The family of this 70-nucleotide sequence from Pardalotus punctatus is "mir-1759 microRNA precursor family". Gene Ontology terms of the family: RISC complex and miRNA-mediated post-transcriptional gene silencing. The family's consensus secondary structure was predicted with RNAalifold. Lineage of the source: Eukaryota > Opisthokonta > Gnathostomata > Aves > Pardalotus.
RNA sequence: GCUGUUGCAGGGAGGAGAGAGGUGUUACCUUACAAGCUGCCACCUCUCCCAUUCUCUCCUCUGCUAGAGC
Numbered sequence: 001g002c003u004g005u006u007g008c009a010g011g012g013a014g015g016a017g018a019g020a021g022g023u024g025u026u027a028c029c030u031u032a033c034a035a036g037c038u039g040c041c042a043c044c045u046c047u048c049c050c051a052u053u054c055u056c057u058c059c060u061c062u063g064c065u066a067g068a069g070c
Stems, first nucleotide, its partner, number of pairs: 001070003005066001007064004011059002014050002017048008026039002029036002